[Rfam]
RNA sequence: CGGGCCGUGUACUCCCAGACGGCCUCGCCGUCGAGCAGGGAGCGGUCACCGAAGUAGGCCCCGUCGGCGUGGACCCCGAGCACCGUCUCGCCCCCGUACUGACCGGUGCCGACCUUCUCGACCUUGCCGUGCGCCAGCAGGUAGACGCGAUCCGCCCGGUCCCCCGCGGCGGCCAGCACCUGCCCCGCGGCGACGUCCUGCUGCUCGCACCGCCGGGCCAGUUCACCGAGCACUUCCUCGUCGCCGAGGUCCCGGAGCGCGGGGAGCUCUCCGAGCUCGGCGGGGAUGACCGCGACCCGGUCACCGGUCUGCACGAAGGUCACCCGGCCGUCCCCCACCGAGUAGCUCAGCCUCCGGUUCACCCGGUAGGUGCCGCCCUGCACCUGCACCCACGGCAGCAUCUUCAGCAGCCACCGCGAGGUGAUCUCCUGCAUCUGCGGGGCGGACUUGGUGGUCGUCGCGAGGUUCCGCGCCGCCGCCGUGCCCAGACUCUGCUGGGGCGGCAACGU
Number, nucleotide and partner (000 for none) at each position: 001c000002g000003g000004g000005c000006c000007g389008u388009g387010u386011a385012c000013u000014c000015c000016c380017a000018g328019a000020c000021g325022g324023c000024c000025u322026c000027g320028c319029c318030g000031u316032c315033g000034a000035g312036c311037a310038g309039g308040g000041a000042g305043c000044g000045g304046u303047c000048a301049c300050c299051g298052a000053a000054g233055u232056a000057g000058g000059c228060c000061c000062c000063g224064u000065c111066g110067g109068c108069g000070u000071g000072g000073a000074c000075c000076c000077c000078g000079a100080g099081c000082a097083c096084c000085g094086u000087c000088u000089c000090g000091c000092c000093c000094c085095c000096g083097u082098a000099c080100u079101g000102a000103c000104c000105g000106g000107u000108g068109c067110c066111g065112a000113c000114c000115u000116u000117c000118u221119c000120g219121a000122c217123c216124u000125u000126g213127c212128c000129g210130u209131g000132c000133g205134c000135c203136a202137g201138c000139a199140g198141g197142u000143a196144g000145a000146c000147g000148c000149g000150a000151u000152c000153c000154g188155c187156c000157c000158g184159g183160u182161c000162c000163c000164c000165c000166g173167c172168g000169g000170c000171g000172g167173c166174c000175a000176g000177c000178a000179c000180c000181u000182g160183c159184c158185c000186c000187g155188c154189g000190g000191c000192g000193a000194c000195g000196u143197c141198c140199u139200g000201c137202u136203g135204c000205u133206c000207g000208c000209a130210c129211c000212g127213c126214c000215g000216g123217g122218c000219c120220a000221g118222u000223u000224c063225a000226c000227c000228g059229a000230g000231c000232a055233c054234u295235u294236c000237c292238u000239c000240g290241u289242c288243g287244c000245c285246g000247a000248g000249g000250u282251c000252c280253c279254g278255g000256a277257g276258c275259g000260c000261g270262g269263g000264g000265a000266g000267c000268u000269c262270u261271c000272c000273g000274a000275g258276c257277u256278c254279g253280g252281c000282g250283g000284g000285g245286a000287u243288g242289a241290c240291c000292g237293c000294g235295a234296c000297c000298c051299g050300g049301u048302c000303a046304c045305c042306g000307g000308u039309c038310u037311g036312c035313a000314c000315g032316a031317a000318g029319g028320u027321c000322a025323c000324c022325c021326g000327g000328c018329c342330g000331u340332c000333c000334c000335c000336c000337a000338c000339c000340g331341a000342g329343u000344a000345g000346c000347u000348c000349a000350g000351c000352c000353u000354c000355c375356g374357g373358u000359u000360c372361a371362c370363c369364c000365g000366g000367u000368a000369g363370g362371u361372g360373c357374c356375g355376c000377c000378c000379u000380g016381c000382a000383c000384c000385u011386g010387c009388a008389c007390c000391c431392a430393c000394g428395g427396c000397a425398g000399c423400a422401u421402c000403u418404u000405c416406a000407g415408c000409a000410g000411c000412c000413a000414c000415c407416g405417c000418g403419a000420g000421g401422u400423g399424a000425u397426c000427u395428c394429c000430u392431g391432c000433a000434u000435c000436u000437g476438c475439g474440g473441g000442g471443c470444g469445g468446a467447c465448u464449u463450g000451g461452u460453g000454g000455u000456c000457g000458u000459c000460g452461c451462g000463a449464g448465g447466u000467u446468c445469c444470g443471c442472g000473c440474c439475g438476c437477c508478g507479c000480c502481g501482u500483g000484c499485c498486c497487a496488g495489a000490c000491u000492c000493u000494g000495c488496u487497g486498g485499g484500g482501c481502g480503g000504c000505a000506a000507c478508g477509u000

Rfam assigns this 509-nucleotide sequence to the family "Saccharopolyspora sRNA 350". It scores 127 bits against the family's covariance model. By type it is an antisense RNA. Rfam 15.1 lists 1,170 matches to the family in 705 species.